[Rfam]
RNA sequence: GUGGUGUGAGUAUUACAUCAGGUACUGGUGUGCAUGCAGUGUUAGGGCCAGUCCCUGUGUCAUACUUUCGCUGC
Numbered sequence: 001g002u003g004g005u006g007u008g009a010g011u012a013u014u015a016c017a018u019c020a021g022g023u024a025c026u027g028g029u030g031u032g033c034a035u036g037c038a039g040u041g042u043u044a045g046g047g048c049c050a051g052u053c054c055c056u057g058u059g060u061c062a063u064a065c066u067u068u069c070g071c072u073g074c
Base pairs, nucleotide, nucleotide: 001074002073003072004071005070006069009066010065011064012063015060016059017058018057021055022054024052025051026050027049028048029047
The record is a 74-nucleotide sequence from Frankliniella occidentalis, which matches "mir-12 microRNA precursor family" in Rfam.
The literature on the family includes a 2010 paper in Science by Werren et al., "Functional and evolutionary insights from the genomes of three parasitoid Nasonia species".